A member of the RNA family "Molybdenum/Tungsten riboswitch aptamer (Moco RNA motif)" from Salmonella enterica, 145 nucleotides long. It is one of the family's seed sequences. Its family is annotated with molybdenum ion binding, tungstate binding and regulation of gene expression in the Gene Ontology.
RNA sequence: AACCACAAUAAACACUCUAGCCUCUGCACUUGGGUCAUUUUUGAUAUGGUGCUUUGGCCGUGACAACGUUUAACGUUUGCCACCAGGGCGCAGGAAGAAAUGACUCCGCCUCCCGUAUUUGGAAAGGUGUACAUGGCUUCACAAC
Dot-bracket structure: .....(.....((((.(..(((...(((((...((((....))))..)))))...))).(((.(((..........))).)))..(((((.((..(....)..)).)))))((.......))...))))).....).........
Numbered sequence: 001a002a003c004c005a006c007a008a009u010a011a012a013c014a015c016u017c018u019a020g021c022c023u024c025u026g027c028a029c030u031u032g033g034g035u036c037a038u039u040u041u042u043g044a045u046a047u048g049g050u051g052c053u054u055u056g057g058c059c060g061u062g063a064c065a066a067c068g069u070u071u072a073a074c075g076u077u078u079g080c081c082a083c084c085a086g087g088g089c090g091c092a093g094g095a096a097g098a099a100a101u102g103a104c105u106c107c108g109c110c111u112c113c114c115g116u117a118u119u120u121g122g123a124a125a126g127g128u129g130u131a132c133a134u135g136g137c138u139u140c141a142c143a144a145c
Stems, first nucleotide, its partner, number of pairs: 006136001012130004017126001020058003026052005034045004060083003064079003086111005092105002096101001112122002